[Rfam]
RNA sequence: CACGUGCUCCGGGGUCGGUGAGAGUCCGAACCGGCGGUGACAGUCCGCGAGCGGCCGACCACUUCGGUGGGGAGCCGUUGAUCCGGUGGAAUUCCGGGACCGACGGUGAAAGUCCGGAUGGGAGGCAGCACGAG
Numbered sequence: 001c002a003c004g005u006g007c008u009c010c011g012g013g014g015u016c017g018g019u020g021a022g023a024g025u026c027c028g029a030a031c032c033g034g035c036g037g038u039g040a041c042a043g044u045c046c047g048c049g050a051g052c053g054g055c056c057g058a059c060c061a062c063u064u065c066g067g068u069g070g071g072g073a074g075c076c077g078u079u080g081a082u083c084c085g086g087u088g089g090a091a092u093u094c095c096g097g098g099a100c101c102g103a104c105g106g107u108g109a110a111a112g113u114c115c116g117g118a119u120g121g122g123a124g125g126c127a128g129c130a131c132g133a134g
Stems, first nucleotide, its partner, number of pairs: 003132006009125002016028003030113002032102002034048004043100002051078005082098005104116003
RNA: FMN riboswitch aptamer (RFN element)
Organism: Rathayibacter sp. Leaf296